[Rfam]
RNA sequence: UGAUUUGUUUAUGAUAAAUUAUGUUUUAGUUAUGGCAUGCUCAUGUUUAAUUAGUUAAAAUUAUUUAUUAUUAUAAGCUCGAUUAUAUCAUUAGCACUAAAAAAUAAAGGAUAAUAAUUCUUUGAGAUUUUAACUAAAAC
Numbered sequence: 001u002g003a004u005u006u007g008u009u010u011a012u013g014a015u016a017a018a019u020u021a022u023g024u025u026u027u028a029g030u031u032a033u034g035g036c037a038u039g040c041u042c043a044u045g046u047u048u049a050a051u052u053a054g055u056u057a058a059a060a061u062u063a064u065u066u067a068u069u070a071u072u073a074u075a076a077g078c079u080c081g082a083u084u085a086u087a088u089c090a091u092u093a094g095c096a097c098u099a100a101a102a103a104a105u106a107a108a109g110g111a112u113a114a115u116a117a118u119u120c121u122u123u124g125a126g127a128u129u130u131u132a133a134c135u136a137a138a139a140c
Stems, first nucleotide, its partner, number of pairs: 004138004008133002015126001018123001023119001025117001027114001029112003